[Rfam]
RNA: Bacterial large subunit ribosomal RNA, nucleotides 640 to 875
Organism: Ktedonobacter racemifer
Nucleotides: 236
Stems, first nucleotide, its partner, number of pairs: 005093007013086006020047004026041005051058002061073004096234002099231001103224006112200011123188001125157004132149006161185003165182005202212003
Number, partner (000 for none) and nucleotide at each position: 001000g002000a003000g004000u005093g006092c007091a008090u009089c010088g011087c012000a013086c014085g015084u016083u017082g018081c019000a020047g021046g022045u023044u024000a025000a026041c027040c028039a029038g030037c031000g032000c033000u034000a035000a036000a037030g038029c039028u040027g041026g042000g043000g044023a045022g046021c047020c048000a049000g050000a051058g052057g053000g054000c055000a056000a057052c058051c059000g060000a061073g062072u063071c064070u065000g066000a067000a068000a069000c070064a071063g072062g073061c074000g075000u076000a077000c078000u079000g080000u081018g082017u083016a084015g085014c086013g087011g088010c089009g090008a091007u092006g093005c094000g095000a096234c097233c098000c099231g100000a101000a102000a103224c104223c105222g106221u107220g108219u109000g110000a111000g112200c113199u114198a115197c116196c117195c118194a119193u120192g121191a122190g123188c124000a125157g126156a127155g128154u129000g130000a131000a132149g133148c134147g135146g136145a137144u138000g139000u140000a141000a142000c143000a144137g145136u146135c147134c148133g149132u150000c151000g152000a153000g154128g155127c156126u157125c158000g159000a160000a161185c162184c163183c164000a165182c166181c167180a168179g169178u170000g171000u172000u173000g174000c175000a176000a177000a178169a179168c180167u181166g182165g183163g184162g185161g186000a187000u188123g189000a190122c191121u192120u193119g194118u195117g196116g197115g198114u199113a200112g201000g202212g203211g204210u205000g206000a207000a208000a209000u210204g211203c212202u213000a214000a215000u216000c217000g218000a219108a220107c221106a222105c223104g224103g225000a226000g227000a228000u229000a230000g231099c232000u233097g234096g235000u236000u